Source information:
Small nucleolar RNA snoR53Y: a 74-nucleotide RNA from Arabis alpina. Pairs were carried over by alignment from the consensus structure, which was predicted with WAR. Its Rfam clan is "snoR53 clan". The source organism's lineage runs through Eukaryota, Streptophyta, rosids, Brassicaceae and Arabis. On this family, see Brown et al., RNA 2001: "Multiple snoRNA gene clusters from Arabidopsis". The family has 7 seed sequences and 513 matches in Rfam 15.1. Its family is annotated with RNA processing and nucleolus in the Gene Ontology.

RNA sequence: GUUCCCUAUGAUGGUUUAACCAUGCUAAUACUGAUCUCUUAUGAAUGAGUCAAUGUUCAGUUUCUGAGGGAAUC
Number, nucleotide and partner (000 for none) at each position: 001g073002u072003u071004c070005c069006c000007u000008a000009u000010g000011a000012u000013g000014g000015u000016u000017u000018a000019a000020c000021c000022a000023u000024g000025c000026u000027a000028a000029u000030a000031c000032u000033g000034a000035u000036c000037u000038c000039u000040u000041a000042u000043g000044a000045a000046u000047g000048a000049g000050u000051c000052a000053a000054u000055g000056u000057u000058c000059a000060g000061u000062u000063u000064c000065u000066g000067a000068g000069g005070g004071a003072a002073u001074c000